[Rfam]
RNA sequence: CUGACUUUUGUUUCAACAGUGCUUGGACAGAACAG
Numbered sequence: 001c002u003g004a005c006u007u008u009u010g011u012u013u014c015a016a017c018a019g020u021g022c023u024u025g026g027a028c029a030g031a032a033c034a035g
Base pairs, nucleotide, nucleotide: 001035002034003033006031007030008029010028012027013026014025015024016023017021
Shown here is a 35-nucleotide RNA sequence from Moschus moschiferus, a member of the family "Iron response element I". Rfam classes the family as a cis-regulatory element. The literature on the family includes a 1987 paper in Science by Hentze et al., "Identification of the iron-responsive element for the translational regulation of human ferritin mRNA". A search with the family's covariance model found it, with a score of 35 bits. Rfam 15.1 lists 6,829 matches to the family in 599 species.